[Rfam]
RNA: skipping-rope RNA
RNA sequence: GUGCUUUGAGGACGGAACGGGCAGCCGUCGCCCCUCAUUGAGGUUAGGAGAUGUGGGAGUGUCACCCCACCAAAACAC
Numbered sequence: 001g002u003g004c005u006u007u008g009a010g011g012a013c014g015g016a017a018c019g020g021g022c023a024g025c026c027g028u029c030g031c032c033c034c035u036c037a038u039u040g041a042g043g044u045u046a047g048g049a050g051a052u053g054u055g056g057g058a059g060u061g062u063c064a065c066c067c068c069a070c071c072a073a074a075a076c077a078c
Stems, first nucleotide, its partner, number of pairs: 001078003005074004011029005020063004031048001033043004053070005